[Rfam]
RNA sequence: UGGUAAAUGGUGUUCCCAAGUACCGUGAAUCCAAGGGGUCGGGAUGCGCAAUUACCGGAACCCCCGCCGUUUGCCA
Numbered sequence: 001u002g003g004u005a006a007a008u009g010g011u012g013u014u015c016c017c018a019a020g021u022a023c024c025g026u027g028a029a030u031c032c033a034a035g036g037g038g039u040c041g042g043g044a045u046g047c048g049c050a051a052u053u054a055c056c057g058g059a060a061c062c063c064c065c066g067c068c069g070u071u072u073g074c075c076a
Stems, first nucleotide, its partner, number of pairs: 001076012013029003017025001035064004039058004
A member of the RNA family "S6-S18-Chlorobi ribosomal protein leader", 76 nucleotides long. It is annotated as a cis-regulatory leader.